A member of the RNA family "mir-9186 microRNA precursor family" from Eptesicus fuscus, 81 nucleotides long. Rfam 15.1 lists 143 matches to the family in 7 species. The organism belongs to Eptesicus, within Eukaryota. Pairs were carried over by alignment from the consensus structure, which was predicted with RNAalifold.

[Rfam]
RNA sequence: UAGGGGGAGGGAGGUGGCAUGGCUGGUAGUAUGGUAAUGACUGCCCAUAACUGCCAGACAUGCCGCUUUCCUCACCCUACA
Numbered sequence: 001u002a003g004g005g006g007g008a009g010g011g012a013g014g015u016g017g018c019a020u021g022g023c024u025g026g027u028a029g030u031a032u033g034g035u036a037a038u039g040a041c042u043g044c045c046c047a048u049a050a051c052u053g054c055c056a057g058a059c060a061u062g063c064c065g066c067u068u069u070c071c072u073c074a075c076c077c078u079a080c081a
Stems, first nucleotide, its partner, number of pairs: 001079005007073004013067008023057007030049002